[Rfam]
The record is a 47-nucleotide RNA sequence from Solanum lycopersicum, which matches "Plastid-rpl16 group II-D1 intron" in Rfam. The source organism's lineage runs through Eukaryota, Viridiplantae, Pentapetalae, Solaneae and Solanum subgen. Lycopersicon. About the family: Plastid-rpl16 is a non-coding RNA (ncRNA) recognised in plastids. It was recognised in and intronic region of a ribosome rpl16 gene. It scores 47 bits against the family's covariance model. The base pairs follow the family's consensus structure, which was predicted with LocARNA.

RNA sequence: AUGAUCUUCCAGCCAAUAAAGACUCAGAAGAUUGACUCAAGAACGAA
Numbered sequence: 001a002u003g004a005u006c007u008u009c010c011a012g013c014c015a016a017u018a019a020a021g022a023c024u025c026a027g028a029a030g031a032u033u034g035a036c037u038c039a040a041g042a043a044c045g046a047a
Base pairs, nucleotide, nucleotide: 007041008040011037012036014034015033016032017031